[Rfam]
RNA sequence: GUCGACUGCAAGCAACUGGCAGGCAGAUGGUGGUGGACGGAGUGAGAGGAGGAGUCCUGCCGGGUGCUCGGCGGCGUCGACCGAGCGUCCAGGCCAAGCGCGGCGUCGAUAAGCUGUCACUGGGGGAGCCUGGAGACAGCUGGUCGUACAAUGAGUGACGCACGGCUCAGGGCCGAAAGGCAGCAGGCAAAAGUCGCCGCGUCGCGACAGUGGUCGGAUCGCGCUUGCGAGUCGUUGACACUCGACAGCCUUCUCAAUACCUUCGGACCCAUCGU
Numbered sequence: 001g002u003c004g005a006c007u008g009c010a011a012g013c014a015a016c017u018g019g020c021a022g023g024c025a026g027a028u029g030g031u032g033g034u035g036g037a038c039g040g041a042g043u044g045a046g047a048g049g050a051g052g053a054g055u056c057c058u059g060c061c062g063g064g065u066g067c068u069c070g071g072c073g074g075c076g077u078c079g080a081c082c083g084a085g086c087g088u089c090c091a092g093g094c095c096a097a098g099c100g101c102g103g104c105g106u107c108g109a110u111a112a113g114c115u116g117u118c119a120c121u122g123g124g125g126g127a128g129c130c131u132g133g134a135g136a137c138a139g140c141u142g143g144u145c146g147u148a149c150a151a152u153g154a155g156u157g158a159c160g161c162a163c164g165g166c167u168c169a170g171g172g173c174c175g176a177a178a179g180g181c182a183g184c185a186g187g188c189a190a191a192a193g194u195c196g197c198c199g200c201g202u203c204g205c206g207a208c209a210g211u212g213g214u215c216g217g218a219u220c221g222c223g224c225u226u227g228c229g230a231g232u233c234g235u236u237g238a239c240a241c242u243c244g245a246c247a248g249c250c251u252u253c254u255c256a257a258u259a260c261c262u263u264c265g266g267a268c269c270c271a272u273c274g275u
Stems, first nucleotide, its partner, number of pairs: 007021003027275007038265005046255007057248003061244006068237001071235005077229001082227007089217002092215005098208001099206008107146004112141007120133005147153002155197005165188003172181003
A member of the RNA family "Metazoan signal recognition particle RNA" from Toxocara canis, 275 nucleotides long. The source organism's lineage runs through Eukaryota, Opisthokonta, Eumetazoa, Ecdysozoa and Toxocara. Rfam 15.1 lists 383,523 matches to the family in 1,221 species. By type it is a non-coding RNA gene. Pairs were carried over by alignment from the consensus structure, which is taken from published work. Rfam's curators write: The signal recognition particle (SRP) is a universally conserved ribonucleoprotein. It is involved in the co-translational targeting of proteins to membranes. The eukaryotic SRP consists of a 300-nucleotide 7S RNA and six proteins: SRPs 72, 68, 54, 19, 14, and 9. Archaeal SRP consists of a 7S RNA and homologues of the eukaryotic SRP19 and SRP54 proteins. The match comes from Rfam's covariance-model search (183 bits).